[Rfam]
RNA sequence: UUGACAGAAGAGAGCGAGCACACAGUGGAGAUGGUAUACAAGCGGUAUCCACACCGUUGCGUGCUCGCUCCUCUCUCUGUCAG
Numbered sequence: 001u002u003g004a005c006a007g008a009a010g011a012g013a014g015c016g017a018g019c020a021c022a023c024a025g026u027g028g029a030g031a032u033g034g035u036a037u038a039c040a041a042g043c044g045g046u047a048u049c050c051a052c053a054c055c056g057u058u059g060c061g062u063g064c065u066c067g068c069u070c071c072u073c074u075c076u077c078u079g080u081c082a083g
Base pairs, nucleotide, nucleotide: 001083002082003081004080005079006078007077008076010073011072012071013069014068015067016066017065018064019063020062021061023059024058025057
RNA: mir-156 microRNA precursor family
Organism: Carex littledalei